[Rfam]
RNA sequence: CAAAAAUAAAUAGUGUAUUUUCAUAUAAUCGUAGGGAUAUGGCCUACAAGUUUCUACCUGUUUACCGUAAAUAAACUGACUAUGAAAAGCAGAGAUAAAAUA
Numbered sequence: 001c002a003a004a005a006a007u008a009a010a011u012a013g014u015g016u017a018u019u020u021u022c023a024u025a026u027a028a029u030c031g032u033a034g035g036g037a038u039a040u041g042g043c044c045u046a047c048a049a050g051u052u053u054c055u056a057c058c059u060g061u062u063u064a065c066c067g068u069a070a071a072u073a074a075a076c077u078g079a080c081u082a083u084g085a086a087a088a089g090c091a092g093a094g095a096u097a098a099a100a101u102a
Base pairs, nucleotide, nucleotide: 018088019087020086021085022084023083024082025081029049031047032046033045034044035043058078060076061075062074063073064072
RNA: Purine riboswitch aptamer
Organism: Niallia circulans